U1 spliceosomal RNA: a 163-nucleotide RNA sequence from Castor canadensis. The literature on the family includes a 1997 paper in Nucleic Acids Res by Zwieb, "The uRNA database". The family's RNA type in Rfam is spliceosomal small nuclear RNA.
RNA sequence: AUACUUACCUGGCAGGGGAGAUACCAUGAUCAUGGGGGUGGUUUUCCCAGGGCCAGGCUUAACCAUUGCACUCUGGAUGUGCUGACCCUACAAUUUCUCCAAAUGUGGGAAACUUGACUGCAUAAUUUGUGGUGGUGGGGGAGUGCAUUCGUGAUCUCCCCUA
Numbered sequence: 001a002u003a004c005u006u007a008c009c010u011g012g013c014a015g016g017g018g019a020g021a022u023a024c025c026a027u028g029a030u031c032a033u034g035g036g037g038g039u040g041g042u043u044u045u046c047c048c049a050g051g052g053c054c055a056g057g058c059u060u061a062a063c064c065a066u067u068g069c070a071c072u073c074u075g076g077a078u079g080u081g082c083u084g085a086c087c088c089u090a091c092a093a094u095u096u097c098u099c100c101a102a103a104u105g106u107g108g109g110a111a112a113c114u115u116g117a118c119u120g121c122a123u124a125a126u127u128u129g130u131g132g133u134g135g136u137g138g139g140g141g142a143g144u145g146c147a148u149u150c151g152u153g154a155u156c157u158c159c160c161c162u163a
Base pairs, nucleotide, nucleotide: 012121013120014119015118016048017047018046019045020044021043023042024041025040026039027038049089050088051087052086056083057082058081060079061078063076064075091116092115093114094112095111096110098108099107137162138161139160140159141158142157146153147152